A member of the RNA family "TPP riboswitch aptamer (THI element)" from Flexivirga aerilata, 112 nucleotides long.

RNA sequence: CAUGUCCUUCGCGGGAGUCCGGUGGACCGGACUGAGAGGGGGCUGACGCCGCCCCGACCGUCACCAACUUGAUCCGGGUCAUGCCGGCGCAAGGAGAAGCCAUGGCGACCAA
Dot-bracket structure: ......((((((((..(((((......)))))......(((((.......)))))..))))......((((..((((......))))..))))..)))).............